The record is a 130-nucleotide RNA sequence from Streptosporangium roseum, which matches "Group II catalytic intron D1-D4-4" in Rfam. Taxonomically the source falls in Streptosporangium roseum (Bacteria, Bacillati, Actinomycetes, Streptosporangiales). Rfam's curators write: Group II introns are found in rRNA, tRNA and mRNA of organelles in fungi, plants and protists, and also in mRNA in bacteria.

[Rfam]
RNA sequence: UUGCCGGUGGAAGUCCGGUCCGGGUAGCUGCCAGGAGGCCCGAUAGCAGGCCGGCGGCUUCGUCUGGAAACGGGCGGGGUCGAAGCCCGGCGUCGAAAGCCCUUAGGGUCGCUUCACUUGGUGAGCGGGU
Numbered sequence: 001u002u003g004c005c006g007g008u009g010g011a012a013g014u015c016c017g018g019u020c021c022g023g024g025u026a027g028c029u030g031c032c033a034g035g036a037g038g039c040c041c042g043a044u045a046g047c048a049g050g051c052c053g054g055c056g057g058c059u060u061c062g063u064c065u066g067g068a069a070a071c072g073g074g075c076g077g078g079g080u081c082g083a084a085g086c087c088c089g090g091c092g093u094c095g096a097a098a099g100c101c102c103u104u105a106g107g108g109u110c111g112c113u114u115c116a117c118u119u120g121g122u123g124a125g126c127g128g129g130u
Base pairs, nucleotide, nucleotide: 021042022041023040024039050091051090052089053088054087055082056081057080058079059078060077064073066071099109100108101107